Small nucleolar RNA Z247: a 138-nucleotide sequence from Panicum miliaceum. The base pairs follow the family's consensus structure, which was predicted with PFOLD. Rfam 15.1 lists 7,071 matches to the family in 142 species. It scores 52 bits against the family's covariance model.
[Rfam]
RNA sequence: CCUCUUGAUGAUGGUGAACUCAUCGAGCACAUCCUCACGGGCUUGAAUGUAGAAUUCGAGUCCUUGGUUUCGGCCCUUUCACAAGGGUUGAACCAAUCUCGGUUGAGGAGUUGUACUCUCAACUACUCACCUUCGAGA
Numbered sequence: 001c002c003u004c005u006u007g008a009u010g011a012u013g014g015u016g017a018a019c020u021c022a023u024c025g026a027g028c029a030c031a032u033c034c035u036c037a038c039g040g041g042c043u044u045g046a047a048u049g050u051a052g053a054a055u056u057c058g059a060g061u062c063c064u065u066g067g068u069u070u071c072g073g074c075c076c077u078u079u080c081a082c083a084a085g086g087g088u089u090g091a092a093c094c095a096a097u098c099u100c101g102g103u104u105g106a107g108g109a110g111u112u113g114u115a116c117u118c119u120c121a122a123c124u125a126c127u128c129a130c131c132u133u134c135g136a137g138a
Stems, first nucleotide, its partner, number of pairs: 004137005088106004